mir-30 microRNA precursor family: a 75-nucleotide sequence from Pelusios castaneus. About the family: This family consists of the mammalian microRNA (miRNA) precursor mir-30a.

RNA sequence: GUAGCAUGUGUAAACAUCCUACACUCUCAGCUGUGAAUUUAAGAUGGCUGGGAGAAGGUUGUUUACUCCUUCUGC
Numbered sequence: 001g002u003a004g005c006a007u008g009u010g011u012a013a014a015c016a017u018c019c020u021a022c023a024c025u026c027u028c029a030g031c032u033g034u035g036a037a038u039u040u041a042a043g044a045u046g047g048c049u050g051g052g053a054g055a056a057g058g059u060u061g062u063u064u065a066c067u068c069c070u071u072c073u074g075c
Stems, first nucleotide, its partner, number of pairs: 002074003006070001008068001010066007018058003024054009
NCBI's taxonomy places the organism under Eukaryota, Bilateria, Sarcopterygii, Sauria, Pelusios.
Gene Ontology terms of the family: gene silencing by miRNA and RISC complex.
The family's consensus secondary structure was predicted with PFOLD.
A search with the family's covariance model found it, with a score of 72 bits.